[Rfam]
RNA sequence: CCCGGCGCUCACGCACCGGGCUAUUACAUUUCGCCCCGAUGGAGCU
Numbered sequence: 001c002c003c004g005g006c007g008c009u010c011a012c013g014c015a016c017c018g019g020g021c022u023a024u025u026a027c028a029u030u031u032c033g034c035c036c037c038g039a040u041g042g043a044g045c046u
Stems, first nucleotide, its partner, number of pairs: 001020005007014002033045002036042002

Overview: Shown here is a 46-nucleotide sequence from Draconibacterium sediminis, a member of the family "Acido-Lenti-1 RNA". It scores 39 bits against the family's covariance model. The base pairs follow the family's consensus structure, which is taken from published work.